RNA: Vibrio regulatory RNA of OmpA
Organism: Vibrio nereis
RNA sequence: GUAGAUAGCAGAGCAUGAUAUAAGUUUACAGGCCGUCUAAACUGUUUUCUUACUGACGCUAUGAAUUUACGCUGCUUUUUCUUAUUAACUCCUAUAUUUGUAUCCGCCCAGAGCCAGAUUGCUCUGGGCUUUUUUUA
Number, nucleotide and partner (000 for none) at each position: 001g070002u069003a068004g067005a066006u061007a060008g059009c058010a000011g057012a000013g000014c000015a000016u052017g051018a050019u000020a048021u000022a000023a000024g000025u000026u000027u000028a000029c000030a000031g000032g046033c000034c044035g043036u000037c000038u000039a000040a000041a000042c000043u035044g034045u000046u032047u000048u020049c000050u018051u017052a016053c000054u000055g000056a000057c011058g009059c008060u007061a006062u000063g000064a000065a000066u005067u004068u003069a002070c001071g000072c000073u000074g000075c000076u000077u000078u000079u000080u000081c000082u000083u000084a000085u000086u000087a000088a000089c000090u000091c000092c000093u000094a000095u000096a000097u000098u000099u000100g000101u000102a000103u000104c000105c000106g129107c128108c127109c126110a125111g124112a123113g122114c121115c000116a000117g000118a000119u000120u000121g114122c113123u112124c111125u110126g109127g108128g107129c106130u000131u000132u000133u000134u000135u000136u000137a000